[Rfam]
RNA: T-box leader
Organism: Natronincola ferrireducens
RNA sequence: AUUUUAGCGAUGAAGAGGAAGAGUAGGUUAACCCCAAUACUAAGAGAGAAAACACCUAAGGCUGAAAGUGUUUUUGUAUAUGAUUAACUGAAAACUAUCCUUGAGCUGUUUCUGAUUAGCCAGUGUGAAAGGAAAACCGGUGACAACGUUAUAGUCAAUGAAGGUGGAUUUGUAUCAAUUUAGGUGGAACCGCGGGAAAAUAAGUCUCUCGUCCUAUUG
Numbered sequence: 001a002u003u004u005u006a007g008c009g010a011u012g013a014a015g016a017g018g019a020a021g022a023g024u025a026g027g028u029u030a031a032c033c034c035c036a037a038u039a040c041u042a043a044g045a046g047a048g049a050a051a052a053c054a055c056c057u058a059a060g061g062c063u064g065a066a067a068g069u070g071u072u073u074u075u076g077u078a079u080a081u082g083a084u085u086a087a088c089u090g091a092a093a094a095c096u097a098u099c100c101u102u103g104a105g106c107u108g109u110u111u112c113u114g115a116u117u118a119g120c121c122a123g124u125g126u127g128a129a130a131g132g133a134a135a136a137c138c139g140g141u142g143a144c145a146a147c148g149u150u151a152u153a154g155u156c157a158a159u160g161a162a163g164g165u166g167g168a169u170u171u172g173u174a175u176c177a178a179u180u181u182a183g184g185u186g187g188a189a190c191c192g193c194g195g196g197a198a199a200a201u202a203a204g205u206c207u208c209u210c211g212u213c214c215u216a217u218u219g
Stems, first nucleotide, its partner, number of pairs: 007106002015101001017099002026089006039077002050073006109136001110133004138148002167176003181216004192212005